[Rfam]
RNA sequence: GAAAAUGAAUAAUAUCGUUUCUUUCCGCUUCUUUUUUUACUUUAGCGCCUGAACUCAGGGGGCUUUGCGCGUAAAAAAGAAACGAAAAGUAACGCCGUAAGCCUCCAGUUUGGAGGCUUUUUUGUU
Numbered sequence: 001g002a003a004a005a006u007g008a009a010u011a012a013u014a015u016c017g018u019u020u021c022u023u024u025c026c027g028c029u030u031c032u033u034u035u036u037u038u039a040c041u042u043u044a045g046c047g048c049c050u051g052a053a054c055u056c057a058g059g060g061g062g063c064u065u066u067g068c069g070c071g072u073a074a075a076a077a078a079g080a081a082a083c084g085a086a087a088a089g090u091a092a093c094g095c096c097g098u099a100a101g102c103c104u105c106c107a108g109u110u111u112g113g114a115g116g117c118u119u120u121u122u123u124g125u126u
Base pairs, nucleotide, nucleotide: 016094017093018092019091021089022088023087024086026084027083029081030080031079032078033077034076036074038073039072040071058068060066061065099119100118101117102116103115104114105113106112107111